[Rfam]
RNA sequence: UGCACUGAAUGGUAUCUGCAUCCAGCAGUCUUGUCCUGGUGGCAUGUUCAAAAAACAGUGCGACAGCAAUUCAACAUGUGGCAUCGUUGGUUCUCAAGCUGCAGUGCUUGCUAAACCUGGUAUUUUUGUUGAAACAAGA
Dot-bracket structure: .((((((.......(.(((((.((.(((.......))).).).))))....).).))))))..(((.((((((......(((((...................))))).........))).))).)))...........
Annotation:
Small nucleolar RNA SNORA8: a 139-nucleotide RNA sequence from Anolis carolinensis. Rfam describes the family as follows. ACA8 is a member of the H/ACA class of snoRNA that guide the sites of modification of uridines to pseudouridines. Lineage of the source: Eukaryota > Chordata > Toxicofera > Anolidae > Anolis.